The family of this 42-nucleotide RNA sequence from Shigella dysenteriae is "ES036 (CssrF) sRNA".
A reference for the family is Rau et al. (2015), "Differential expression of small RNAs under chemical stress and fed-batch fermentation in E. coli", BMC Genomics.
Rfam classes the family as a small RNA.
NCBI's taxonomy places the organism under Bacteria, Pseudomonadati, Enterobacterales, Enterobacteriaceae, Shigella dysenteriae.
The family's consensus secondary structure was predicted with RNAfold.
About the family: Differentially expressed under several chemical stress conditions. Also identified in Shigella as CssrF.
[Rfam]
RNA sequence: AAAGUUUGUAAAUUCAAUAAAUUGCAGAAUUCACGUAGGCCU
Numbered sequence: 001a002a003a004g005u006u007u008g009u010a011a012a013u014u015c016a017a018u019a020a021a022u023u024g025c026a027g028a029a030u031u032c033a034c035g036u037a038g039g040c041c042u
Stems, first nucleotide, its partner, number of pairs: 004030003007026005